This 124-nucleotide RNA from Gossypium australe belongs to the Rfam family "MIR7504 microRNA precursor family". Lineage of the source: Eukaryota > Viridiplantae > Tracheophyta > Mesangiospermae > Gossypium. The family has 8 seed sequences and 7,343 matches in Rfam 15.1.
[Rfam]
RNA sequence: AAUAGGAGUAUGACAAAUUAGAUUUUUUCUCUUAAUUUUUAACAUUUUUAGUUGGAUUUAAUUUGUUUUUAGGAGAAAAAAGCUAAAAAUCGGGAGGAAAAAUCUGAUUUGUCAUGCUCCUGUU
Numbered sequence: 001a002a003u004a005g006g007a008g009u010a011u012g013a014c015a016a017a018u019u020a021g022a023u024u025u026u027u028u029c030u031c032u033u034a035a036u037u038u039u040u041a042a043c044a045u046u047u048u049u050a051g052u053u054g055g056a057u058u059u060a061a062u063u064u065g066u067u068u069u070u071a072g073g074a075g076a077a078a079a080a081a082g083c084u085a086a087a088a089a090u091c092g093g094g095a096g097g098a099a100a101a102a103u104c105u106g107a108u109u110u111g112u113c114a115u116g117c118u119c120c121u122g123u124u
Stems, first nucleotide, its partner, number of pairs: 001124027029096005035090005041084001045080004